[Rfam]
RNA: mir-2807 microRNA precursor family
RNA sequence: UUAACUCAAAUUUGUAUGGAGUAGAAACAGUGCGCCUAGCGACAAACGAAGGGAAUAUGUUCCAACUCCAUACAAAUUUAAGUUA
Dot-bracket structure: .......(((((((((.(.(((.(.((((.....(((..((.....))..)))....)))).).))).).)))))))))......